[Rfam]
RNA sequence: AUUCGUGCAUUAGUAUACAAGGUCCAGGCGCAUUAAGCCCCGAUUUCGGGGCUUUUUGUUAUAUGAGAAUAGAAUCUUUCACCGGGCUCUUAAGCCCUUCUUAU
Numbered sequence: 001a002u003u004c005g006u007g008c009a010u011u012a013g014u015a016u017a018c019a020a021g022g023u024c025c026a027g028g029c030g031c032a033u034u035a036a037g038c039c040c041c042g043a044u045u046u047c048g049g050g051g052c053u054u055u056u057u058g059u060u061a062u063a064u065g066a067g068a069a070u071a072g073a074a075u076c077u078u079u080c081a082c083c084g085g086g087c088u089c090u091u092a093a094g095c096c097c098u099u100c101u102u103a104u
Stems, first nucleotide, its partner, number of pairs: 035054008084097004
Dot-bracket structure: ..................................((((((((....)))))))).............................((((......)))).......
The record is a 104-nucleotide RNA sequence from Candidatus Profftia tarda, which matches "Gammaprotebacteria rimP leader" in Rfam. The source organism's lineage runs through Bacteria, Pseudomonadati, Pseudomonadota, Enterobacteriaceae and Candidatus Profftia. On this family, see Naville and Gautheret, Genome Biol 2010: "Premature terminator analysis sheds light on a hidden world of bacterial transcriptional attenuation". By type it is a cis-regulatory leader. The match comes from Rfam's covariance-model search (70 bits).